[Rfam]
A member of the RNA family "c-di-GMP-I riboswitch aptamer" from Halalkalibacter oceani, 87 nucleotides long. Pairs were carried over by alignment from the consensus structure, which is taken from published work. Taxonomically the source falls in Halalkalibacter (Bacteria, Bacillota, Bacilli, Bacillaceae).
RNA sequence: AUAAGAUAAUGGCAAACUUACUGAAAAGUAAGGACGCAAAGCUAAAGGGACUAAUGGAGUAAAAUCCGAUGUCAGCCAGCUGCCUUA
Numbered sequence: 001a002u003a004a005g006a007u008a009a010u011g012g013c014a015a016a017c018u019u020a021c022u023g024a025a026a027a028g029u030a031a032g033g034a035c036g037c038a039a040a041g042c043u044a045a046a047g048g049g050a051c052u053a054a055u056g057g058a059g060u061a062a063a064a065u066c067c068g069a070u071g072u073c074a075g076c077c078a079g080c081u082g083c084c085u086u087a
Stems, first nucleotide, its partner, number of pairs: 012037002017032006040081004047077002049073003056067003